The record is a 115-nucleotide RNA sequence from Macleaya cordata, which matches "Small nucleolar RNA Z278" in Rfam. The base pairs follow the family's consensus structure, which was predicted with PFOLD. Rfam's curators write: snoZ278 is a C/D box small nucleolar RNA. Its methylation guide targets have not been reported.

RNA sequence: GCUGAUGAUGAUAUGAUCCAAUUAGUUGAGGUGUAGUGGAACUGAGACCCUGUUUACAGGGAGAACCCCUUGGGGAAGCUACAUUUUGUAUGAAAUUAAUGGAUCUAGCUGAGGC
Numbered sequence: 001g002c003u004g005a006u007g008a009u010g011a012u013a014u015g016a017u018c019c020a021a022u023u024a025g026u027u028g029a030g031g032u033g034u035a036g037u038g039g040a041a042c043u044g045a046g047a048c049c050c051u052g053u054u055u056a057c058a059g060g061g062a063g064a065a066c067c068c069c070u071u072g073g074g075g076a077a078g079c080u081a082c083a084u085u086u087u088g089u090a091u092g093a094a095a096u097u098a099a100u101g102g103a104u105c106u107a108g109c110u111g112a113g114g115c
Base pairs, nucleotide, nucleotide: 001115002114003113048061049060050059051058052057
Dot-bracket structure: (((............................................(((((....)))))...................................................)))